[Rfam]
RNA sequence: GUUGAAGCUCCAUCUAUAAACGGAUAAGACUUAUCUUUUAGUGUAUACGAAUAUGAAUUGUUGAGGUAGAAAUACUAAACCUAUUGUUCUAUCAAUAGGUUUAGUACUUCUAC
Numbered sequence: 001g002u003u004g005a006a007g008c009u010c011c012a013u014c015u016a017u018a019a020a021c022g023g024a025u026a027a028g029a030c031u032u033a034u035c036u037u038u039u040a041g042u043g044u045a046u047a048c049g050a051a052u053a054u055g056a057a058u059u060g061u062u063g064a065g066g067u068a069g070a071a072a073u074a075c076u077a078a079a080c081c082u083a084u085u086g087u088u089c090u091a092u093c094a095a096u097a098g099g100u101u102u103a104g105u106a107c108u109u110c111u112a113c
Base pairs, nucleotide, nucleotide: 009024010023011022013020066113067112068111069110070109071108073106074105075104077102078101079100081098082097083096084095085094
A member of the RNA family "Plastid-psbA-1 3UTR RNA" from Potamogeton perfoliatus, 113 nucleotides long.
Rfam's curators write: Plastid psbA-1 is a non-coding RNA (ncRNA) present in plastids.
On this family, see Richter et al., Plant Commun 2023: "Retrograde signaling in plants: A critical review focusing on the GUN pathway and beyond".